[Rfam]
RNA sequence: UGCCUUUGUGUUGCCCGUUCAUCGCAUCCCUCAUGAACAGGGUGUCAACUAAGGCAUACAGUGACUCUUGUGGUUGUUGAAGAAAUUCAUCAUCAUUGAUCCAUUUCUACACAGUCAACUGCAAGCACACAG
Number, nucleotide and partner (000 for none) at each position: 001u000002g055003c054004c053005u052006u051007u000008g000009u047010g046011u000012u044013g043014c042015c041016c000017g038018u037019u036020c035021a034022u033023c000024g000025c000026a000027u000028c000029c000030c000031u000032c000033a022034u021035g020036a019037a018038c017039a000040g000041g015042g014043u013044g012045u000046c010047a009048a000049c000050u000051a006052a005053g004054g003055c002056a000057u000058a000059c000060a000061g000062u000063g000064a000065c000066u000067c125068u124069u123070g122071u000072g119073g000074u117075u000076g115077u000078u111079g110080a000081a108082g107083a106084a104085a000086u000087u000088c000089a000090u000091c000092a000093u000094c000095a000096u000097u000098g000099a000100u000101c000102c000103a000104u084105u000106u083107c082108u081109a000110c079111a078112c000113a000114g000115u076116c000117a074118a000119c072120u000121g000122c070123a069124a068125g067126c000127a000128c000129a000130c000131a000132g000

A member of the RNA family "Small nucleolar RNA SNORA13" from Mola mola, 132 nucleotides long. The family's consensus secondary structure was predicted with CMfinder. About the family: ACA13 is a member of the H/ACA class of snoRNA that guide the sites of modification of uridines to pseudouridines. The family's RNA type in Rfam is H/ACA-box small nucleolar RNA. Its Rfam clan is "SNORA13 clan". Its family is annotated with RNA processing and nucleolus in the Gene Ontology.